[Rfam]
RNA: FMN riboswitch aptamer (RFN element)
Organism: Flexivirga caeni
Nucleotides: 130
Stems, first nucleotide, its partner, number of pairs: 003128007010119001017029003031108002033097002035049004044095002053072002077093005099111003
Number, partner (000 for none) and nucleotide at each position: 001000g002000a003128a004127c005126g006125u007124g008123c009122u010119c011000c012000g013000g014000g015000g016000u017029c018028g019027g020000u021000g022000a023000a024000a025000u026000u027019c028018c029017g030000a031108g032107c033097c034096g035049g036048c037047g038046g039000u040000g041000a042000u043000a044095g045094u046038c047037c048036g049035c050000g051000a052000c053072c054071c055000g056000g057000c058000u059000g060000c061000u062000u063000c064000g065000g066000c067000a068000g069000u070000c071054g072053g073000c074000u075000g076000a077093c078092c079091u080090g081089g082000u083000g084000g085000a086000a087000c088000u089081c090080c091079a092078g093077g094045a095044c096034c097033g098000a099111c100110g101109g102000u103000u104000a105000c106000a107032g108031u109101c110100c111099g112000g113000a114000u115000g116000g117000g118000a119010g120000g121000c122009a123008g124007c125006a126005c127004g128003u129000c130000a